[Rfam]
RNA sequence: CCUCCCCCUCCUUACUCCAGCUGCUCUGACUCGGUGAUGUGGUCUGGCAUUGACGGGGGAAACAGGAACCGCUCCACCACACGCUUCCACUGCGGUUAGCGUCGGUGCAGGACUAGUGGUGGAGCGAACACG
Numbered sequence: 001c002c003u004c005c006c007c008c009u010c011c012u013u014a015c016u017c018c019a020g021c022u023g024c025u026c027u028g029a030c031u032c033g034g035u036g037a038u039g040u041g042g043u044c045u046g047g048c049a050u051u052g053a054c055g056g057g058g059g060a061a062a063c064a065g066g067a068a069c070c071g072c073u074c075c076a077c078c079a080c081a082c083g084c085u086u087c088c089a090c091u092g093c094g095g096u097u098a099g100c101g102u103c104g105g106u107g108c109a110g111g112a113c114u115a116g117u118g119g120u121g122g123a124g125c126g127a128a129c130a131c132g
Stems, first nucleotide, its partner, number of pairs: 003060006011052001017047004022042001023040002027036001070126003074122002084111003088107003
Shown here is a 132-nucleotide RNA from Pangasianodon hypophthalmus, a member of the family "Small nucleolar RNA SNORA49". Rfam classes the family as an H/ACA-box small nucleolar RNA. From the family's description: The snoRNA ACA49 has no identified RNA target. NB genomic sequence 1-nt different from published. Gene Ontology terms of the family: RNA processing and nucleolus. Pairs were carried over by alignment from the consensus structure, which was predicted with RNAalifold.